[Rfam]
RNA sequence: UAAAAGUUGAGACCAGAAACAACUUAAAUAAACGGGGCGUAAUCUGAAAAGCCAAAUGAGUAGGAAAUUA
Numbered sequence: 001u002a003a004a005a006g007u008u009g010a011g012a013c014c015a016g017a018a019a020c021a022a023c024u025u026a027a028a029u030a031a032a033c034g035g036g037g038c039g040u041a042a043u044c045u046g047a048a049a050a051g052c053c054a055a056a057u058g059a060g061u062a063g064g065a066a067a068u069u070a
Stems, first nucleotide, its partner, number of pairs: 006023004036053003043064002